[Rfam]
RNA sequence: UAAAUUAAUCUAAUAUCCCUUCAUAUAUACUGGGUAAUAUGGUCCCAAAGUCUCUACCAGAACACCGUAAAUGUUCUGACUAUGAAGGCGGAAAAUUAAGAC
Numbered sequence: 001u002a003a004a005u006u007a008a009u010c011u012a013a014u015a016u017c018c019c020u021u022c023a024u025a026u027a028u029a030c031u032g033g034g035u036a037a038u039a040u041g042g043u044c045c046c047a048a049a050g051u052c053u054c055u056a057c058c059a060g061a062a063c064a065c066c067g068u069a070a071a072u073g074u075u076c077u078g079a080c081u082a083u084g085a086a087g088g089c090g091g092a093a094a095a096u097u098a099a100g101a102c
Stems, first nucleotide, its partner, number of pairs: 018088008031047004058078007
Description:
This 102-nucleotide RNA from Aquibacillus salsiterrae belongs to the Rfam family "Purine riboswitch aptamer". The family's consensus secondary structure is taken from published work. It scores 88 bits against the family's covariance model. NCBI's taxonomy places the organism under Bacteria, Bacillati, Bacilli, Caryophanales, Aquibacillus.